[Rfam]
RNA sequence: CCGGCCCUUUCCGCCGUCUCGCAAACGGGCGCUGGCUUCAGGAGAGGAUAACCCAUGGCCGUAAGCGCAGGCACACCGUAGUGCCUGCUAUCACGGCAUUAUCGCCAGCGGUGCUGCCGUGAUGCGGUCUUCGCAAGGACCGCAACAUGAAGGUACGAUGCUUUUGUGUCGUGCUUCUUGUUUCUGGCACGUUGUGUCUUCACGCAGACAGAAGCUACCCAGGUAAUUCUGUUCCCGUAACGCUCAACGUCCAGAGCAGGUAAGCCAGGAGGCCGCCCUGUUGGGCGGCUUUCUUU
Numbered sequence: 001c002c003g004g005c006c007c008u009u010u011c012c013g014c015c016g017u018c019u020c021g022c023a024a025a026c027g028g029g030c031g032c033u034g035g036c037u038u039c040a041g042g043a044g045a046g047g048a049u050a051a052c053c054c055a056u057g058g059c060c061g062u063a064a065g066c067g068c069a070g071g072c073a074c075a076c077c078g079u080a081g082u083g084c085c086u087g088c089u090a091u092c093a094c095g096g097c098a099u100u101a102u103c104g105c106c107a108g109c110g111g112u113g114c115u116g117c118c119g120u121g122a123u124g125c126g127g128u129c130u131u132c133g134c135a136a137g138g139a140c141c142g143c144a145a146c147a148u149g150a151a152g153g154u155a156c157g158a159u160g161c162u163u164u165u166g167u168g169u170c171g172u173g174c175u176u177c178u179u180g181u182u183u184c185u186g187g188c189a190c191g192u193u194g195u196g197u198c199u200u201c202a203c204g205c206a207g208a209c210a211g212a213a214g215c216u217a218c219c220c221a222g223g224u225a226a227u228u229c230u231g232u233u234c235c236c237g238u239a240a241c242g243c244u245c246a247a248c249g250u251c252c253a254g255a256g257c258a259g260g261u262a263a264g265c266c267a268g269g270a271g272g273c274c275g276c277c278c279u280g281u282u283g284g285g286c287g288g289c290u291u292u293c294u295u296u
Base pairs, nucleotide, nucleotide: 007046008045009044010043011042012041014028015027016026017025029036030035058188059187060186068087069086070085071084072083073082074081090123091122092121093120094119095118096117097116098115100113101112102111103110104109124143125142126141127140128139129138130137144181147178149176150175154173155172156171157170158169159168160167161166189261190260192259193258194257195256214218236249237248238247268294269293270291271290272289273288274287275286276285277284278283

Description:
This 296-nucleotide sequence from Salmonella enterica belongs to the Rfam family "ryfA RNA". NCBI's taxonomy places the organism under Bacteria, Enterobacteriaceae, Salmonella enterica, Salmonella enterica subsp. enterica, Salmonella enterica subsp. enterica serovar Typhimurium. By type it is a small RNA. The family's consensus secondary structure was predicted with RNAalifold.